[Rfam]
RNA sequence: AGCCCAGGUCGUGACUGGCGAGACAGUGGAGCCCACCACGGGGAGCGACCGCGGGGCGCGGCAGCGCUGCCCCGCCACCGGAGGCCGUUCGCCUGGGCCGAGCAG
Numbered sequence: 001a002g003c004c005c006a007g008g009u010c011g012u013g014a015c016u017g018g019c020g021a022g023a024c025a026g027u028g029g030a031g032c033c034c035a036c037c038a039c040g041g042g043g044a045g046c047g048a049c050c051g052c053g054g055g056g057c058g059c060g061g062c063a064g065c066g067c068u069g070c071c072c073c074g075c076c077a078c079c080g081g082a083g084g085c086c087g088u089u090c091g092c093c094u095g096g097g098c099c100g101a102g103c104a105g
Base pairs, nucleotide, nucleotide: 003054004053007050008049009048010047011046012045015042016041017093018092019091020090021089026039027038028037029036083099084098085097086096
The record is a 105-nucleotide sequence from Brevibacterium rongguiense, which matches "ZMP/ZTP riboswitch aptamer (pfl RNA motif)" in Rfam. It scores 43 bits against the family's covariance model.